[Rfam]
RNA: Small nucleolar RNA SNORA65
Organism: Jaculus jaculus
RNA sequence: CCCACCGCGGUGCCUGACCAGUUCUUGUGGGCGGGUGCAGCGCAGCGGUGAGCUGGCAGUAAGCCCCAGCUUUUAGGAAACAGGCUUGUUUUUCCUGUGGGCGACUCUGUGUCAAAAGCACGGGGACAGGC
Numbered sequence: 001c002c003c004a005c006c007g008c009g010g011u012g013c014c015u016g017a018c019c020a021g022u023u024c025u026u027g028u029g030g031g032c033g034g035g036u037g038c039a040g041c042g043c044a045g046c047g048g049u050g051a052g053c054u055g056g057c058a059g060u061a062a063g064c065c066c067c068a069g070c071u072u073u074u075a076g077g078a079a080a081c082a083g084g085c086u087u088g089u090u091u092u093u094c095c096u097g098u099g100g101g102c103g104a105c106u107c108u109g110u111g112u113c114a115a116a117a118g119c120a121c122g123g124g125g126a127c128a129g130g131c
Base pairs, nucleotide, nucleotide: 005048006047007046008045010043017036018035019034021032023030024029064124065123066122069119070118071117072116076113077112081109082108083107084106086104089101090100091099